A member of the RNA family "Eukaryotic large subunit ribosomal RNA", 425 nucleotides of a longer RNA. The sequence is in the family's curated seed alignment. A reference for the family is Yusupov et al. (2001), "Crystal structure of the ribosome at 5.5 A resolution", Science.
RNA sequence: GGAUCUGAACUUAGACGGGACUACCCGCUGAACUUAAGCAUAUCAAUAAGCGGAGGAAAAGAAAAUAACAAUGAUACCCUUAGUAGCGGCGAGCGAAGUGGGUAAAGCUCAAGUUUAAAACCUGUUUGUCAUAGACAAACCGGAUUGUAAACUAUGGACAUGUUAUCCAGGCUCUUUGGACCUUCAAGUCCUUUGGAAUAAGGCUUCACAGAGGGUGACAAUCCCGUUAGAGGGUCUUGAACAGAGUCUAUUGCGAUGCAUGCUCCAAGAGUCAAGUUGUUUGGGAAUGCAACCUAAAUUGCAGGGUAAAUCCCUCCUAAAGCUAAAUAUUGGCGAGAAACCGAUAGCAAACAAGUACCGUGAGGGAAAGUUGAAAAGAACUUUGAAAAGAGAGUCAAAAGUACGUGAAAUUGCUUAAAGGGAAG
Numbered sequence: 001g002g003a004u005c006u007g008a009a010c011u012u013a014g015a016c017g018g019g020a021c022u023a024c025c026c027g028c029u030g031a032a033c034u035u036a037a038g039c040a041u042a043u044c045a046a047u048a049a050g051c052g053g054a055g056g057a058a059a060a061g062a063a064a065a066u067a068a069c070a071a072u073g074a075u076a077c078c079c080u081u082a083g084u085a086g087c088g089g090c091g092a093g094c095g096a097a098g099u100g101g102g103u104a105a106a107g108c109u110c111a112a113g114u115u116u117a118a119a120a121c122c123u124g125u126u127u128g129u130c131a132u133a134g135a136c137a138a139a140c141c142g143g144a145u146u147g148u149a150a151a152c153u154a155u156g157g158a159c160a161u162g163u164u165a166u167c168c169a170g171g172c173u174c175u176u177u178g179g180a181c182c183u184u185c186a187a188g189u190c191c192u193u194u195g196g197a198a199u200a201a202g203g204c205u206u207c208a209c210a211g212a213g214g215g216u217g218a219c220a221a222u223c224c225c226g227u228u229a230g231a232g233g234g235u236c237u238u239g240a241a242c243a244g245a246g247u248c249u250a251u252u253g254c255g256a257u258g259c260a261u262g263c264u265c266c267a268a269g270a271g272u273c274a275a276g277u278u279g280u281u282u283g284g285g286a287a288u289g290c291a292a293c294c295u296a297a298a299u300u301g302c303a304g305g306g307u308a309a310a311u312c313c314c315u316c317c318u319a320a321a322g323c324u325a326a327a328u329a330u331u332g333g334c335g336a337g338a339a340a341c342c343g344a345u346a347g348c349a350a351a352c353a354a355g356u357a358c359c360g361u362g363a364g365g366g367a368a369a370g371u372u373g374a375a376a377a378g379a380a381c382u383u384u385g386a387a388a389a390g391a392g393a394g395u396c397a398a399a400a401g402u403a404c405g406u407g408a409a410a411u412u413g414c415u416u417a418a419a420g421g422g423a424a425g
Stems, first nucleotide, its partner, number of pairs: 024055001025053005035042002065072002076103004086094002106324004113152005119146002122143002124140005157265002159262004164258004169249007178237007188204001190203004207211001214224002274295001276293005301318001304315002358365002381392004